A member of the RNA family "Bacterial large subunit ribosomal RNA" from Candidatus Gracilibacteria bacterium GN02-873, 600 nucleotides of a longer RNA. It scores 2579 bits against the family's covariance model.
RNA sequence: ACAAUAUCGGUAAAAAUGCCGAUUACUCGCAGCAAGACGGAAAGACCCUAUGAAGCUUUACUCUAGUUUGGCAUUGAGUCGUACGUAUAUUUGUGCAGGAUAGGUGGGAGACGCUGAAGGUGGAACGCUAGUUCUACUGGAGUCAUCCUUGAGAUACCACCCUUGUAUACGUAUGCCUCUAACCCGCCCAAGGCGGGGACCGUGCUUGAUGGGGAGUUUAACUGGGGCGGUUGCCUCCUAAAAUGUAACGGAGGCGCACAAAGGUAGGUUAGAUUCGGAUGGAAAUCGGAUCGAUAGUGUAUUCGCAUAAACCUGCUUGACUGAGAGACCUACAAGUCGAUCAGAGACGAAAGUCGGUGAAAGUGAUCCGGCACCAACACGUGGGAGUGGUGUCGCUCAACGGAUAAAAGUUACUCUAGGGAUAACAGGCUGAUCGCGUCCAAGAGUUCAUAUCGACGACGCGGUUUGGCACCUCGAUGUCGGCUCGUCGCAUCCUGGGGCUGGAGAAGGUCCCAAGGGUAUGGCUGUUCGCCAUUUAAAGCGGUACGCGAGCUGGGUUCAGAACGUCGUGAGACAGUUUGGCCCCUAUCUGCUGUGAGC
Numbered sequence: 001a002c003a004a005u006a007u008c009g010g011u012a013a014a015a016a017u018g019c020c021g022a023u024u025a026c027u028c029g030c031a032g033c034a035a036g037a038c039g040g041a042a043a044g045a046c047c048c049u050a051u052g053a054a055g056c057u058u059u060a061c062u063c064u065a066g067u068u069u070g071g072c073a074u075u076g077a078g079u080c081g082u083a084c085g086u087a088u089a090u091u092u093g094u095g096c097a098g099g100a101u102a103g104g105u106g107g108g109a110g111a112c113g114c115u116g117a118a119g120g121u122g123g124a125a126c127g128c129u130a131g132u133u134c135u136a137c138u139g140g141a142g143u144c145a146u147c148c149u150u151g152a153g154a155u156a157c158c159a160c161c162c163u164u165g166u167a168u169a170c171g172u173a174u175g176c177c178u179c180u181a182a183c184c185c186g187c188c189c190a191a192g193g194c195g196g197g198g199a200c201c202g203u204g205c206u207u208g209a210u211g212g213g214g215a216g217u218u219u220a221a222c223u224g225g226g227g228c229g230g231u232u233g234c235c236u237c238c239u240a241a242a243a244u245g246u247a248a249c250g251g252a253g254g255c256g257c258a259c260a261a262a263g264g265u266a267g268g269u270u271a272g273a274u275u276c277g278g279a280u281g282g283a284a285a286u287c288g289g290a291u292c293g294a295u296a297g298u299g300u301a302u303u304c305g306c307a308u309a310a311a312c313c314u315g316c317u318u319g320a321c322u323g324a325g326a327g328a329c330c331u332a333c334a335a336g337u338c339g340a341u342c343a344g345a346g347a348c349g350a351a352a353g354u355c356g357g358u359g360a361a362a363g364u365g366a367u368c369c370g371g372c373a374c375c376a377a378c379a380c381g382u383g384g385g386a387g388u389g390g391u392g393u394c395g396c397u398c399a400a401c402g403g404a405u406a407a408a409a410g411u412u413a414c415u416c417u418a419g420g421g422a423u424a425a426c427a428g429g430c431u432g433a434u435c436g437c438g439u440c441c442a443a444g445a446g447u448u449c450a451u452a453u454c455g456a457c458g459a460c461g462c463g464g465u466u467u468g469g470c471a472c473c474u475c476g477a478u479g480u481c482g483g484c485u486c487g488u489c490g491c492a493u494c495c496u497g498g499g500g501c502u503g504g505a506g507a508a509g510g511u512c513c514c515a516a517g518g519g520u521a522u523g524g525c526u527g528u529u530c531g532c533c534a535u536u537u538a539a540a541g542c543g544g545u546a547c548g549c550g551a552g553c554u555g556g557g558u559u560c561a562g563a564a565c566g567u568c569g570u571g572a573g574a575c576a577g578u579u580u581g582g583c584c585c586c587u588a589u590c591u592g593c594u595g596u597g598a599g600c
Stems, first nucleotide, its partner, number of pairs: 006023005026599008035591003039586002047420004052416002054412005060217004067209002070206004076179003080175011093162001103161005110144003119138008183197005220232004233255006256401001258358002264316006270296002273291006297306002321344004327338003346355003369395007377388002429470003433467001434464007444454002481556001482554004486548001487545005494519002497514006521535005562580004566575003